[Rfam]
RNA sequence: CAAGUAAGAUAUAAAUAGAUGUGUAAUGCGUCACUACGAUACUUAUUUCCUUUGAUCGUAGUUAUUAGUAGCUAAAAGCUAUAAAGGAGCCUUUUUA
Numbered sequence: 001c002a003a004g005u006a007a008g009a010u011a012u013a014a015a016u017a018g019a020u021g022u023g024u025a026a027u028g029c030g031u032c033a034c035u036a037c038g039a040u041a042c043u044u045a046u047u048u049c050c051u052u053u054g055a056u057c058g059u060a061g062u063u064a065u066u067a068g069u070a071g072c073u074a075a076a077a078g079c080u081a082u083a084a085a086g087g088a089g090c091c092u093u094u095u096u097a
Base pairs, nucleotide, nucleotide: 018032019031020030021029022028035060036059037058038057039056040055047089048088049087050086051085052084069081070080071079072078
This 97-nucleotide RNA sequence from Companilactobacillus versmoldensis belongs to the Rfam family "PreQ1-II (pre queuosine) riboswitch aptamer". Gene Ontology term of the family: queuosine biosynthetic process. For this family Rfam cites "Structural determinants for ligand capture by a class II preQ1 riboswitch" (Kang et al., Proc Natl Acad Sci U S A, 2014). Rfam's curators write: preQ1-II riboswitch was first reported for Weinberg et al. 2007 it was recognised in Streptococcaceae and Lactococcus families in 5' untranslated regions of genes of a membrane protein classified as COG4708 or DUF988. Meyers et al. 2008 confirm that preQ1-II recognise the queuosine (Q) precursor pre-queuosine 1 (preQ1). The source organism's lineage runs through Bacteria, Bacillati, Lactobacillales, Companilactobacillus and Companilactobacillus versmoldensis.